[Rfam]
RNA sequence: ACUGCUUAUGCUAAGGUGCAUUUAGUGCAGAUAGUGAAAUAGACUAGCACCUACUGCUCUAAGUGCCCCUUCUGGCAUAAGGG
Numbered sequence: 001a002c003u004g005c006u007u008a009u010g011c012u013a014a015g016g017u018g019c020a021u022u023u024a025g026u027g028c029a030g031a032u033a034g035u036g037a038a039a040u041a042g043a044c045u046a047g048c049a050c051c052u053a054c055u056g057c058u059c060u061a062a063g064u065g066c067c068c069c070u071u072c073u074g075g076c077a078u079a080a081g082g083g
Stems, first nucleotide, its partner, number of pairs: 006079001011074001014070003018066008027057002030055001032053003
RNA: mir-17 microRNA precursor family
Organism: Cyprinus carpio